[Rfam]
RNA sequence: AAGCAUUUGUAUAACUGGCGGAAGUGGGUAAACCACAGGGAGUACAAAUGGAAAAGCCGACCGCCUGGGCAUCACAU
Numbered sequence: 001a002a003g004c005a006u007u008u009g010u011a012u013a014a015c016u017g018g019c020g021g022a023a024g025u026g027g028g029u030a031a032a033c034c035a036c037a038g039g040g041a042g043u044a045c046a047a048a049u050g051g052a053a054a055a056g057c058c059g060a061c062c063g064c065c066u067g068g069g070c071a072u073c074a075c076a077u
Stems, first nucleotide, its partner, number of pairs: 004050009015039002017065005024036004054072001056070003

A member of the RNA family "ZMP/ZTP riboswitch aptamer (pfl RNA motif)" from Clostridium sp. MD294, 77 nucleotides long. Lineage of the source: Bacteria > Bacillati > Bacillota > Clostridia > Clostridium.